[Rfam]
RNA sequence: GAUGAAGUCAAACUCCUAGCCUCCGUGUCUACGUUGCUGGUGCAAUAUGAUGCUCAGGCCGUGGCUUAUCGCCACCAGGGUGCAAGGUAGAAAUGCCUGCAUCUCCCGUAUUUGGAAAGGUGUUAUGGUACCGCAACU
Dot-bracket structure: ...(.(....(((.((..((((..(((((...((((......))))..)))))..)))).(((((.....)))))..((((((.(((((....)))))))))))((.......))...)).)))....).).......

The record is a 138-nucleotide sequence from Yersinia ruckeri, which matches "Molybdenum/Tungsten riboswitch aptamer (Moco RNA motif)" in Rfam. Rfam links the family to the GO terms tungstate binding, molybdenum ion binding and regulation of gene expression. Lineage of the source: Bacteria > Gammaproteobacteria > Enterobacterales > Yersiniaceae > Yersinia.